[Rfam]
RNA sequence: UGGCAAUGAAGCAGUUGACUGUGUCGGGAUGCAGCUGAUUGUGGAGCCUGAUAUUGGGUUAUGUGAUUACCUCAACCCGGAUAGGUUCUUUAGAAAGAACUGAACGAAAACACAUUGA
Numbered sequence: 001u002g003g004c005a006a007u008g009a010a011g012c013a014g015u016u017g018a019c020u021g022u023g024u025c026g027g028g029a030u031g032c033a034g035c036u037g038a039u040u041g042u043g044g045a046g047c048c049u050g051a052u053a054u055u056g057g058g059u060u061a062u063g064u065g066a067u068u069a070c071c072u073c074a075a076c077c078c079g080g081a082u083a084g085g086u087u088c089u090u091u092a093g094a095a096a097g098a099a100c101u102g103a104a105c106g107a108a109a110a111c112a113c114a115u116u117g118a
Base pairs, nucleotide, nucleotide: 002048003047004046011042012041013040014039015038016037017036019034020033021032022031024080025079026078027077063113064112065111084101085100086099087098088097089096090095
drum RNA: a 118-nucleotide RNA. From the family's description: Firmicutes, Bacteroidetes (1 example), Proteobacteria (2 examples), Spirochaetes (2 examples). It is one of the family's seed sequences.